Record summary: Shown here is a 149-nucleotide sequence from Tritonibacter aquimaris, a member of the family "FMN riboswitch aptamer (RFN element)".
RNA sequence: CGGCGUUCUCAGGGCGGGGUGAAAUUCCCCACCGGCGGUAAAUGGGGCACGCCCCCAUAAGCCCGCGAGCGGCCCGGCAUUGCCGGGCGUCAGCAGAUCUGGUGCAACUCCAGAGCCGACGGUUAUAGUCCGGAUGAAAGAGACCGUGC
Numbered sequence: 001c002g003g004c005g006u007u008c009u010c011a012g013g014g015c016g017g018g019g020u021g022a023a024a025u026u027c028c029c030c031a032c033c034g035g036c037g038g039u040a041a042a043u044g045g046g047g048c049a050c051g052c053c054c055c056c057a058u059a060a061g062c063c064c065g066c067g068a069g070c071g072g073c074c075c076g077g078c079a080u081u082g083c084c085g086g087g088c089g090u091c092a093g094c095a096g097a098u099c100u101g102g103u104g105c106a107a108c109u110c111c112a113g114a115g116c117c118g119a120c121g122g123u124u125a126u127a128g129u130c131c132g133g134a135u136g137a138a139a140g141a142g143a144c145c146g147u148g149c
Stems, first nucleotide, its partner, number of pairs: 003147003007143004017029003031129002033118002035066004061116002069094002098114005120132003